[Rfam]
RNA sequence: CUCACCCUUGCGGGAGAGACCGCGCGCCGCAUCGCGGCGGCAGCCGGCGCCGUAGGAGCAAACCCUCCCCGGGAAACUCUCAGGCACACGUACCGCAACGGCCGC
Numbered sequence: 001c002u003c004a005c006c007c008u009u010g011c012g013g014g015a016g017a018g019a020c021c022g023c024g025c026g027c028c029g030c031a032u033c034g035c036g037g038c039g040g041c042a043g044c045c046g047g048c049g050c051c052g053u054a055g056g057a058g059c060a061a062a063c064c065c066u067c068c069c070c071g072g073g074a075a076a077c078u079c080u081c082a083g084g085c086a087c088a089c090g091u092a093c094c095g096c097a098a099c100g101g102c103c104g105c
Base pairs, nucleotide, nucleotide: 006100008098009097010096011095012094013093020047021046022045049085050084051083052081056079057078058077063071
RNA: Glycine riboswitch aptamer
Organism: Leucobacter soli